[Rfam]
A member of the RNA family "Antizyme RNA frameshifting stimulation element" from Trichechus manatus, 55 nucleotides long. Rfam classes the family as a frameshift element. This family represents a structural element which is found in antizyme mRNA and is known to promote frameshifting. The source organism's lineage runs through Eukaryota, Bilateria, Chordata, Sarcopterygii and Trichechus manatus. The literature on the family includes a 2004 paper in J Mol Biol by Ivanov et al., "Identification of a new antizyme mRNA +1 frameshifting stimulatory pseudoknot in a subset of diverse invertebrates and its apparent absence in intermediate species". Its family is annotated with translational frameshifting in the Gene Ontology.
RNA sequence: UGAUGUCCCUCACCCACCCCUGAAGAUCCCAGGUGGGCGAGGGAACAGAGUGAUC
Numbered sequence: 001u002g003a004u005g006u007c008c009c010u011c012a013c014c015c016a017c018c019c020c021u022g023a024a025g026a027u028c029c030c031a032g033g034u035g036g037g038c039g040a041g042g043g044a045a046c047a048g049a050g051u052g053a054u055c
Base pairs, nucleotide, nucleotide: 006044007043008042009041010040011039013037014036015035016034017033018032025055026054027053028052030050